[Rfam]
RNA sequence: GGUUGGGUUUUAUUUAAAACUUUCAAGAUUUGCUUAUUUGGGUCAAUAAGC
Numbered sequence: 001g002g003u004u005g006g007g008u009u010u011u012a013u014u015u016a017a018a019a020c021u022u023u024c025a026a027g028a029u030u031u032g033c034u035u036a037u038u039u040g041g042g043u044c045a046a047u048a049a050g051c
Stems, first nucleotide, its partner, number of pairs: 003026003006021006032051007
Dot-bracket structure: ..(((((((((....))))))..))).....(((((((......)))))))